[Rfam]
This 121-nucleotide RNA sequence from Streptomyces indicus belongs to the Rfam family "Streptomyces-metH RNA". The source organism's lineage runs through Bacteria, Actinomycetota, Actinomycetes, Streptomycetaceae and Streptomyces. It scores 99 bits against the family's covariance model.

RNA sequence: CGGUCCGACCCCUGGGACGCCCCUCUCCUCGGGACCUUGGUCCCGGCUACCCUGACCGGGUGCGCCUUCCACCGGGAGGGCGCAAAGCCGACAGCCGUCGCACACAGGGAGUUCUUCCAUG
Numbered sequence: 001c002g003g004u005c006c007g008a009c010c011c012c013u014g015g016g017a018c019g020c021c022c023c024u025c026u027c028c029u030c031g032g033g034a035c036c037u038u039g040g041u042c043c044c045g046g047c048u049a050c051c052c053u054g055a056c057c058g059g060g061u062g063c064g065c066c067u068u069c070c071a072c073c074g075g076g077a078g079g080g081c082g083c084a085a086a087g088c089c090g091a092c093a094g095c096c097g098u099c100g101c102a103c104a105c106a107g108g109g110a111g112u113u114c115u116u117c118c119a120u121g
Base pairs, nucleotide, nucleotide: 061084062083063082064081066078067077068076069075087101088100090099091098092097